[Rfam]
RNA sequence: GGGCAGGAUAGGUGAAGUAGGCCCACCCGCGCGCGGGCGUUCCUUCUUCACUGUCCCUUAUUCGCACCUGGCGGUGCUCAACGGGAAUCCUGCUCUGCGAGGCG
Numbered sequence: 001g002g003g004c005a006g007g008a009u010a011g012g013u014g015a016a017g018u019a020g021g022c023c024c025a026c027c028c029g030c031g032c033g034c035g036g037g038c039g040u041u042c043c044u045u046c047u048u049c050a051c052u053g054u055c056c057c058u059u060a061u062u063c064g065c066a067c068c069u070g071g072c073g074g075u076g077c078u079c080a081a082c083g084g085g086a087a088u089c090c091u092g093c094u095c096u097g098c099g100a101g102g103c104g
Stems, first nucleotide, its partner, number of pairs: 001095009012051006019044003024039001026037004054086004064077005
traJ-II RNA: a 104-nucleotide RNA from Bordetella genomosp. 4. The family's consensus secondary structure is taken from published work. It scores 105 bits against the family's covariance model.